Shown here is a 232-nucleotide RNA sequence from Miscanthus lutarioriparius, a member of the family "MIR6217 microRNA precursor family". Gene Ontology terms of the family: RISC complex and miRNA-mediated post-transcriptional gene silencing. It scores 147 bits against the family's covariance model.
RNA sequence: UGGCUACAAAAUAACUCGAUAUUGUAGCCACUUUGAGUUACGAUAAUUACUAUGUUAAUUUAUGAGAUUAUAGUAACUCCUUACUAAGUGGUUUACUAUAACGUUAUGGUAAAUAUCCCAGGCUGUGUUAUAGUAACCCAACUAUAGUAAAUAUAUAUUGAUAUUAUAAAUAAAUUAGUAUAUAAAAUUAUGGUAAAUGAAGGUGGCUACAUAGUAACUUAUUACAUGGCUG
Numbered sequence: 001u002g003g004c005u006a007c008a009a010a011a012u013a014a015c016u017c018g019a020u021a022u023u024g025u026a027g028c029c030a031c032u033u034u035g036a037g038u039u040a041c042g043a044u045a046a047u048u049a050c051u052a053u054g055u056u057a058a059u060u061u062a063u064g065a066g067a068u069u070a071u072a073g074u075a076a077c078u079c080c081u082u083a084c085u086a087a088g089u090g091g092u093u094u095a096c097u098a099u100a101a102c103g104u105u106a107u108g109g110u111a112a113a114u115a116u117c118c119c120a121g122g123c124u125g126u127g128u129u130a131u132a133g134u135a136a137c138c139c140a141a142c143u144a145u146a147g148u149a150a151a152u153a154u155a156u157a158u159u160g161a162u163a164u165u166a167u168a169a170a171u172a173a174a175u176u177a178g179u180a181u182a183u184a185a186a187a188u189u190a191u192g193g194u195a196a197a198u199g200a201a202g203g204u205g206g207c208u209a210c211a212u213a214g215u216a217a218c219u220u221a222u223u224a225c226a227u228g229g230c231u232g
Stems, first nucleotide, its partner, number of pairs: 001232006010223005016217001018215001020213002023211012038196004043191006051182013067167002070164003075158001081150004088145006094135011108118002